[Rfam]
RNA sequence: CAUCACCGAGCUCAACCUAUAACGUGCUAAUUUUUCGCCUUUUACUAAAGAUUACCGUGGGUUGGGCUCAUACCGGUGACUUACAUAAAUUUUUAGAGGUCGAAAGACCCCCCACUUUUGU
Dot-bracket structure: ..((((..(((((((((((........((((((((...........))))))))...))))))))))).......)))).................(...((((((........)))))))
U5 spliceosomal RNA: a 121-nucleotide RNA from Paramecium octaurelia. By type it is a spliceosomal small nuclear RNA. For this family Rfam cites "The uRNA database" (Zwieb, Nucleic Acids Res, 1997). A search with the family's covariance model found it, with a score of 84 bits. Gene Ontology terms of the family: spliceosomal tri-snRNP complex assembly and U5 snRNP.